[Rfam]
RNA sequence: UCAUCACCAUCCUCUGUAAAUGACCAGAAACUUGCCAAGACAAUAACAAAAGUCUCCCAGGGUCGGGAGACUUUUUAGUCAGUU
Numbered sequence: 001u002c003a004u005c006a007c008c009a010u011c012c013u014c015u016g017u018a019a020a021u022g023a024c025c026a027g028a029a030a031c032u033u034g035c036c037a038a039g040a041c042a043a044u045a046a047c048a049a050a051a052g053u054c055u056c057c058c059a060g061g062g063u064c065g066g067g068a069g070a071c072u073u074u075u076u077a078g079u080c081a082g083u084u
Stems, first nucleotide, its partner, number of pairs: 048076004052071007